[Rfam]
RNA sequence: CGGGUAGCGGAUGGCCGCCGGCUUCACAGCUGGAGGAAAGUCCGGGCACCGCAGGGCAAGAUGCUGGAUAACGUCCAGGCGCGGAAACGCGACAGAAAGUGCAGCAGAGAAUAGACCGCCCGCAGCAAUGCGAGUAAGGGUGAAACGGCGAGGUAAGAGCUCACCGCACGACUGGUGACAGGAGUGGCAUGGUAAACCUCAUCCGGUGCAAGACCAAGCAGGAUUCCGCUCGAAAGAGCCUGGUGCGGCCCGCGCCAGCUGGAUAUCCGGGUAGGUCGCUUGAGGCGGUCGGUAACGAUUCGUCCAGAGAGAUGGUCAUCGCUCCGCAAGGAGUACAGAACCCGGCUUAUAGUUACCCUAUUU
Numbered sequence: 001c002g003g004g005u006a007g008c009g010g011a012u013g014g015c016c017g018c019c020g021g022c023u024u025c026a027c028a029g030c031u032g033g034a035g036g037a038a039a040g041u042c043c044g045g046g047c048a049c050c051g052c053a054g055g056g057c058a059a060g061a062u063g064c065u066g067g068a069u070a071a072c073g074u075c076c077a078g079g080c081g082c083g084g085a086a087a088c089g090c091g092a093c094a095g096a097a098a099g100u101g102c103a104g105c106a107g108a109g110a111a112u113a114g115a116c117c118g119c120c121c122g123c124a125g126c127a128a129u130g131c132g133a134g135u136a137a138g139g140g141u142g143a144a145a146c147g148g149c150g151a152g153g154u155a156a157g158a159g160c161u162c163a164c165c166g167c168a169c170g171a172c173u174g175g176u177g178a179c180a181g182g183a184g185u186g187g188c189a190u191g192g193u194a195a196a197c198c199u200c201a202u203c204c205g206g207u208g209c210a211a212g213a214c215c216a217a218g219c220a221g222g223a224u225u226c227c228g229c230u231c232g233a234a235a236g237a238g239c240c241u242g243g244u245g246c247g248g249c250c251c252g253c254g255c256c257a258g259c260u261g262g263a264u265a266u267c268c269g270g271g272u273a274g275g276u277c278g279c280u281u282g283a284g285g286c287g288g289u290c291g292g293u294a295a296c297g298a299u300u301c302g303u304c305c306a307g308a309g310a311g312a313u314g315g316u317c318a319u320c321g322c323u324c325c326g327c328a329a330g331g332a333g334u335a336c337a338g339a340a341c342c343c344g345g346c347u348u349a350u351a352g353u354u355a356c357c358c359u360a361u362u363u
Stems, first nucleotide, its partner, number of pairs: 002358007009350001010320007018033006038348003042345005047208004054251004060203004064078005079093001080091004094199002099197002101193002116139002118135002121132004147165002150162003166188001167186003172181003212277004222268001225265001242256005284304005289298003
A member of the RNA family "Bacterial RNase P class A" from Fibrobacter sp. UWB4, 363 nucleotides long. Rfam links the family to the GO terms ribonuclease P activity, tRNA processing and dimeric ribonuclease P complex. A search with the family's covariance model found it, with a score of 262 bits. The base pairs follow the family's consensus structure, which is taken from published work. By type it is a ribozyme.